[Rfam]
RNA: Small nucleolar RNA SNORA53
Organism: Geotrypetes seraphini
RNA sequence: CACAUGCUCCUUAGAUCCAUCUUUGUGGAUGCCAGACUUGUGCUGAGUUUGGCUAGAUUUUCAUUUGAAGUGUCUAGUCAUUCCAGGCAAGUGGUAUUCAGCAACUUUUUUGGUUGUUCAGUCGAAGGUGCUUGAGUCAUUGGCAUGUAAGAGAAAUAUACCUGCAUGUUAGCCUUUCAUGUUCUGAUGUUAAUACUGUAAUGUUACAGUGUUUUUCACCAUCAAGACUUGGCUCAUAUGUGGACAUU
Numbered sequence: 001c002a003c004a005u006g007c008u009c010c011u012u013a014g015a016u017c018c019a020u021c022u023u024u025g026u027g028g029a030u031g032c033c034a035g036a037c038u039u040g041u042g043c044u045g046a047g048u049u050u051g052g053c054u055a056g057a058u059u060u061u062c063a064u065u066u067g068a069a070g071u072g073u074c075u076a077g078u079c080a081u082u083c084c085a086g087g088c089a090a091g092u093g094g095u096a097u098u099c100a101g102c103a104a105c106u107u108u109u110u111u112g113g114u115u116g117u118u119c120a121g122u123c124g125a126a127g128g129u130g131c132u133u134g135a136g137u138c139a140u141u142g143g144c145a146u147g148u149a150a151g152a153g154a155a156a157u158a159u160a161c162c163u164g165c166a167u168g169u170u171a172g173c174c175u176u177u178c179a180u181g182u183u184c185u186g187a188u189g190u191u192a193a194u195a196c197u198g199u200a201a202u203g204u205u206a207c208a209g210u211g212u213u214u215u216u217c218a219c220c221a222u223c224a225a226g227a228c229u230u231g232g233c234u235c236a237u238a239u240g241u242g243g244a245c246a247u248u
Stems, first nucleotide, its partner, number of pairs: 002148007010136005018130008026100006036092004043086003047083001050080004056074001062072003101117006162243005169236001171234004183226001185224005194218001198214001